[Rfam]
RNA sequence: UUGUUUGAUAGAGGAGCGGAACACAUAAGUAUAACGCCGAGCGGGAGCGAUGAAGCGUUUGAAAGGGCAACCGCCGAAGUUUAAAAAGCAGCCAUGUUUUUUAUGCUGGGCCGUCAGUGAAUAACUGCCGGACUGUCGCCACAAUGGCGGAGGGCUAUCUCAAUG
Numbered sequence: 001u002u003g004u005u006u007g008a009u010a011g012a013g014g015a016g017c018g019g020a021a022c023a024c025a026u027a028a029g030u031a032u033a034a035c036g037c038c039g040a041g042c043g044g045g046a047g048c049g050a051u052g053a054a055g056c057g058u059u060u061g062a063a064a065g066g067g068c069a070a071c072c073g074c075c076g077a078a079g080u081u082u083a084a085a086a087a088g089c090a091g092c093c094a095u096g097u098u099u100u101u102u103a104u105g106c107u108g109g110g111c112c113g114u115c116a117g118u119g120a121a122u123a124a125c126u127g128c129c130g131g132a133c134u135g136u137c138g139c140c141a142c143a144a145u146g147g148c149g150g151a152g153g154g155c156u157a158u159c160u161c162a163a164u165g
Stems, first nucleotide, its partner, number of pairs: 007159005016074004024067001033059005078107003082103008108134002111131003115127004136150006
A member of the RNA family "Lysine riboswitch aptamer" from Phascolarctobacterium sp. CAG:266, 165 nucleotides long.
The source organism's lineage runs through Bacteria, Bacillati, Bacillota, Acidaminococcales and Phascolarctobacterium.